[Rfam]
RNA sequence: CCGGGCCGGUGCCCUGCGGCCUCUGUCCGACGGACCCUGACGUACUUCCCCAACGCCAGGUGCCGAUCGGACAGAGACCCCGGGACAUCAGCCAUCGGAU
Numbered sequence: 001c002c003g004g005g006c007c008g009g010u011g012c013c014c015u016g017c018g019g020c021c022u023c024u025g026u027c028c029g030a031c032g033g034a035c036c037c038u039g040a041c042g043u044a045c046u047u048c049c050c051c052a053a054c055g056c057c058a059g060g061u062g063c064c065g066a067u068c069g070g071a072c073a074g075a076g077a078c079c080c081c082g083g084g085a086c087a088u089c090a091g092c093c094a095u096c097g098g099a100u
Base pairs, nucleotide, nucleotide: 010087011086013084014083015082016081018079019078021076022075023074024073025072026071027070028069029068030067031065032064033063036060037059038058039057041055042054043053
RNA: mraW RNA
Organism: Nocardia stercoris